[Rfam]
RNA: mir-375 microRNA precursor family
RNA sequence: GCUCACUUGAUCUAGACGGUCAAAUUGUUUGUAAGAAAUUUGUUCGUUUGGCUCGAGUUAGAA
Numbered sequence: 001g002c003u004c005a006c007u008u009g010a011u012c013u014a015g016a017c018g019g020u021c022a023a024a025u026u027g028u029u030u031g032u033a034a035g036a037a038a039u040u041u042g043u044u045c046g047u048u049u050g051g052c053u054c055g056a057g058u059u060a061g062a063a
Base pairs, nucleotide, nucleotide: 002061003060005058006057007056008055009054010053012051013050017046018045021042022041023040025038026037